This 72-nucleotide sequence from Pseudoselenomonas ruminantium belongs to the Rfam family "tRNA". The family's consensus secondary structure is taken from published work.
[Rfam]
RNA sequence: GGCACCUUCGUCAAGCGGUUAAGACACCGGCCUCUCACGCCGGGUUCACGGGUUCGAAUCCCGUAGGUGUCA
Numbered sequence: 001g002g003c004a005c006c007u008u009c010g011u012c013a014a015g016c017g018g019u020u021a022a023g024a025c026a027c028c029g030g031c032c033u034c035u036c037a038c039g040c041c042g043g044g045u046u047c048a049c050g051g052g053u054u055c056g057a058a059u060c061c062c063g064u065a066g067g068u069g070u071c072a
Stems, first nucleotide, its partner, number of pairs: 001071007010025003027043005048064005